[Rfam]
RNA sequence: AGGCAGCCUCUCUGGUCCGGCCGUGCGCCGAGAGGGGUGUUUAACUGCUCGGACAUCGAUGCCUUUCGCUCUUCAGACUCGCUGAGACGGCGACGUCUCUGAAGCUGGUCUAGUAAGCCUAAGUACAUC
Numbered sequence: 001a002g003g004c005a006g007c008c009u010c011u012c013u014g015g016u017c018c019g020g021c022c023g024u025g026c027g028c029c030g031a032g033a034g035g036g037g038u039g040u041u042u043a044a045c046u047g048c049u050c051g052g053a054c055a056u057c058g059a060u061g062c063c064u065u066u067c068g069c070u071c072u073u074c075a076g077a078c079u080c081g082c083u084g085a086g087a088c089g090g091c092g093a094c095g096u097c098u099c100u101g102a103a104g105c106u107g108g109u110c111u112a113g114u115a116a117g118c119c120u121a122a123g124u125a126c127a128u129c
Stems, first nucleotide, its partner, number of pairs: 002041004007037007015029001017027001063123003068118003075111005081105003086097003

Rfam assigns this 129-nucleotide RNA sequence from Rhodamnia argentea to the family "Small nucleolar RNA snoR77".
Rfam links the family to the GO terms nucleolus and RNA processing.
The family's consensus secondary structure was predicted with WAR.
NCBI's taxonomy places the organism under Eukaryota, Magnoliopsida, Pentapetalae, Myrtales, Rhodamnia.
For this family Rfam cites "Experimental RNomics: identification of 140 candidates for small non-messenger RNAs in the plant Arabidopsis thaliana" (Marker et al., Curr Biol, 2002).
Rfam classes the family as an H/ACA-box small nucleolar RNA.